[Rfam]
RNA sequence: CCUCCUUUUCUUGGCAGGGACCAAGCGUGUGUGCUCCCUUUCCCGGUUAUAUAAGGAGGCAGAGGGAAAGGGCUCCGGCCUCCUAGGCAUCAUGGUGUCAUGUCUUUCUGCGGCGACUUCUUAUUCUCCGUUUCUAUCCUCAAGGACCGAGAUGCUG
Numbered sequence: 001c002c003u004c005c006u007u008u009u010c011u012u013g014g015c016a017g018g019g020a021c022c023a024a025g026c027g028u029g030u031g032u033g034c035u036c037c038c039u040u041u042c043c044c045g046g047u048u049a050u051a052u053a054a055g056g057a058g059g060c061a062g063a064g065g066g067a068a069a070g071g072g073c074u075c076c077g078g079c080c081u082c083c084u085a086g087g088c089a090u091c092a093u094g095g096u097g098u099c100a101u102g103u104c105u106u107u108c109u110g111c112g113g114c115g116a117c118u119u120c121u122u123a124u125u126c127u128c129c130g131u132u133u134c135u136a137u138c139c140u141c142a143a144g145g146a147c148c149g150a151g152a153u154g155c156u157g
Stems, first nucleotide, its partner, number of pairs: 001059005015046001017044004024039002027036001093149004098144001110131004115126002
RNA: Small nucleolar RNA SNORA57
Organism: Carlito syrichta